[Rfam]
The family of this 93-nucleotide sequence from Manihot esculenta is "Small nucleolar RNA snoR26". Gene Ontology terms of the family: RNA processing and nucleolus. The family's RNA type in Rfam is C/D-box small nucleolar RNA. Taxonomically the source falls in Manihot (Eukaryota, Viridiplantae, Magnoliopsida, Gunneridae). It scores 96 bits against the family's covariance model.
RNA sequence: UGGGCAUCUGUGAUGAGUUGAUUAAAAUUUGUUAUCCUUGCACUUUGAUUCGCAGUGAAGAAAAUCAUGGGGAGUAAUAACUCUGAGAUGCUC
Numbered sequence: 001u002g003g004g005c006a007u008c009u010g011u012g013a014u015g016a017g018u019u020g021a022u023u024a025a026a027a028u029u030u031g032u033u034a035u036c037c038u039u040g041c042a043c044u045u046u047g048a049u050u051c052g053c054a055g056u057g058a059a060g061a062a063a064a065u066c067a068u069g070g071g072g073a074g075u076a077a078u079a080a081c082u083c084u085g086a087g088a089u090g091c092u093c
Base pairs, nucleotide, nucleotide: 002093003092004091005090006089007088008087